[Rfam]
RNA sequence: CUCGUCCGUCACGUGGACGCCCAGGCCACCGGUCCCGGCUCCCGGCUACCCUGGCGGCGUGCGUUCUCUCCCGGGACGUCUCGGACAGGCGGCACCGGGAAGCGCAAAGCCGACAGCCGUCGCAUCCUAGGGAGCCCCUUCAUG
Number, nucleotide and partner (000 for none) at each position: 001c000002u000003c000004g000005u000006c000007c000008g000009u000010c000011a000012c000013g000014u000015g000016g000017a000018c000019g000020c000021c000022c000023a000024g000025g000026c000027c000028a000029c000030c000031g000032g000033u000034c000035c000036c000037g000038g000039c000040u000041c000042c000043c000044g000045g000046c000047u000048a000049c000050c000051c000052u000053g000054g000055c000056g000057g000058c000059g000060u106061g105062c104063g103064u000065u000066c099067u098068c097069u000070c000071c000072c000073g000074g000075g000076a000077c000078g000079u000080c000081u000082c000083g000084g000085a000086c000087a000088g000089g000090c000091g000092g000093c000094a000095c000096c000097g068098g067099g066100a000101a000102g000103c063104g062105c061106a060107a000108a000109g123110c122111c000112g121113a120114c119115a000116g000117c000118c000119g114120u113121c112122g110123c109124a000125u000126c000127c000128u000129a000130g000131g000132g000133a000134g000135c000136c000137c000138c000139u000140u000141c000142a000143u000144g000